[Rfam]
RNA sequence: AGCUGUUUGCCAACACUCUGGUGCCAAAUCUUUAUCCUGAAAAAAUGAUAAUGCCAUAUUUGGUUCCUAUUUUGGUGCAAACUAGAAAAACUACUGCCGACUACUCACCAUUAUAUCCUACCAAUAUGGAUAUGAUCGGUCCAUUUCAUUGGUAUCCAU
Numbered sequence: 001a002g003c004u005g006u007u008u009g010c011c012a013a014c015a016c017u018c019u020g021g022u023g024c025c026a027a028a029u030c031u032u033u034a035u036c037c038u039g040a041a042a043a044a045a046u047g048a049u050a051a052u053g054c055c056a057u058a059u060u061u062g063g064u065u066c067c068u069a070u071u072u073u074g075g076u077g078c079a080a081a082c083u084a085g086a087a088a089a090a091c092u093a094c095u096g097c098c099g100a101c102u103a104c105u106c107a108c109c110a111u112u113a114u115a116u117c118c119u120a121c122c123a124a125u126a127u128g129g130a131u132a133u134g135a136u137c138g139g140u141c142c143a144u145u146u147c148a149u150u151g152g153u154a155u156c157c158a159u
Stems, first nucleotide, its partner, number of pairs: 007080003020067002023064002026061004031044003095154004108139002110136002113133006
RNA: Small nucleolar RNA snR80
Organism: Dujonia railenensis